[Rfam]
RNA sequence: AAGAAAACUUACAGGGGAAGGGUGAGAACCUUUGAUAAGGUUCGAGUCGAGCGAUAGCGAGACAACGUUGCCGCAGGCAACGGCCCGAAGGGUGAGGAGCGAAGCGACGAAUAAUCCUUCCCCCACCACCA
Numbered sequence: 001a002a003g004a005a006a007a008c009u010u011a012c013a014g015g016g017g018a019a020g021g022g023u024g025a026g027a028a029c030c031u032u033u034g035a036u037a038a039g040g041u042u043c044g045a046g047u048c049g050a051g052c053g054a055u056a057g058c059g060a061g062a063c064a065a066c067g068u069u070g071c072c073g074c075a076g077g078c079a080a081c082g083g084c085c086c087g088a089a090g091g092g093u094g095a096g097g098a099g100c101g102a103a104g105c106g107a108c109g110a111a112u113a114a115u116c117c118u119u120c121c122c123c124c125a126c127c128a129c130c131a
Stems, first nucleotide, its partner, number of pairs: 015122007023114001033094002036091001041089004048059002066082006
RNA: RtT RNA
Organism: Cronobacter sakazakii